[Rfam]
RNA sequence: AAAACUUAGGUAUAAUUCCUUAUGUGCUUUUCGUAUGGUUCUUAACUAAAUUCACUGUGAUUUCCUCAAUCCAUAAUUUUCUCAAAGUUUGUUAUAUCCAAAAAAAAUAUGUAUUUUUAGUUAAGAACCAUACGAAAAGCACCUAAGGAAUUGUACAUAAGUUUU
Number, nucleotide and partner (000 for none) at each position: 001a000002a164003a163004a162005c161006u160007u159008a158009g000010g156011u155012a154013u153014a000015a151016u150017u149018c148019c147020u146021u145022a144023u000024g142025u141026g000027c139028u138029u137030u136031u135032c134033g133034u132035a131036u130037g129038g128039u127040u126041c125042u124043u123044a000045a121046c120047u119048a118049a117050a116051u000052u000053c000054a000055c000056u000057g000058u000059g000060a000061u000062u000063u000064c000065c000066u000067c000068a000069a000070u000071c000072c000073a000074u000075a000076a000077u000078u000079u000080u000081c000082u000083c000084a000085a000086a000087g000088u000089u000090u000091g000092u000093u000094a000095u000096a000097u000098c000099c000100a000101a000102a000103a000104a000105a000106a000107a000108u000109a000110u000111g000112u000113a000114u000115u000116u050117u049118u048119a047120g046121u045122u000123a043124a042125g041126a040127a039128c038129c037130a036131u035132a034133c033134g032135a031136a030137a029138a028139g027140c000141a025142c024143c000144u022145a021146a020147g019148g018149a017150a016151u015152u000153g013154u012155a011156c010157a000158u008159a007160a006161g005162u004163u003164u002165u000

Rfam assigns this 165-nucleotide RNA from Medicago truncatula to the family "MIR2606 microRNA precursor family". The family's consensus secondary structure was predicted with RNAalifold.